Shown here is a 112-nucleotide RNA sequence from Castor canadensis, a member of the family "Y RNA". Rfam classes the family as a non-coding RNA gene. Y RNAs are components of the Ro ribonucleoprotein particle (Ro RNP), in association with Ro60 and La proteins. A search with the family's covariance model found it, with a score of 58 bits. Pairs were carried over by alignment from the consensus structure, which is taken from published work.
RNA sequence: GGCUGGGCUGAAAGUAGUGAGUUAUCACAAUUGAUAGUUCACAAUCAGUUACAGUUUGAACUCCUUGUUCUACACUUCCCCCCUUCUCACUACUGCACUUGACUAGUAUUUU
Numbered sequence: 001g002g003c004u005g006g007g008c009u010g011a012a013a014g015u016a017g018u019g020a021g022u023u024a025u026c027a028c029a030a031u032u033g034a035u036a037g038u039u040c041a042c043a044a045u046c047a048g049u050u051a052c053a054g055u056u057u058g059a060a061c062u063c064c065u066u067g068u069u070c071u072a073c074a075c076u077u078c079c080c081c082c083c084u085u086c087u088c089a090c091u092a093c094u095g096c097a098c099u100u101g102a103c104u105a106g107u108a109u110u111u112u
Stems, first nucleotide, its partner, number of pairs: 002107005008101001010100002014096002016091006047071002